The record is a 132-nucleotide RNA sequence from Streptomyces brasiliensis, which matches "Streptomyces RNA 6925" in Rfam. Rfam's curators write: Identified by deep sequencing of transcriptome at the end of exponential growth phase. Sequencing size consistent with northern blot size. Streptomyces specific. It scores 142 bits against the family's covariance model. The family has 4 seed sequences and 63 matches in Rfam 15.1.
[Rfam]
RNA sequence: GCAGUGUUGCCACGCUGACGCGCCGCUUGGAAGGACUCAGCGUGGUGAUGGUGGGCAAUCUCCCGUCCUUGCCGGGGCGGGUGUGCCACUUAGCGUUCGGCGUCCGUGAGUUACCGCUCUCGGGCGCCGUCG
Numbered sequence: 001g002c003a004g005u006g007u008u009g010c011c012a013c014g015c016u017g018a019c020g021c022g023c024c025g026c027u028u029g030g031a032a033g034g035a036c037u038c039a040g041c042g043u044g045g046u047g048a049u050g051g052u053g054g055g056c057a058a059u060c061u062c063c064c065g066u067c068c069u070u071g072c073c074g075g076g077g078c079g080g081g082u083g084u085g086c087c088a089c090u091u092a093g094c095g096u097u098c099g100g101c102g103u104c105c106g107u108g109a110g111u112u113a114c115c116g117c118u119c120u121c122g123g124g125c126g127c128c129g130u131c132g
Stems, first nucleotide, its partner, number of pairs: 001094002006049002010045009023034002051089004056085002062081008098129009108119004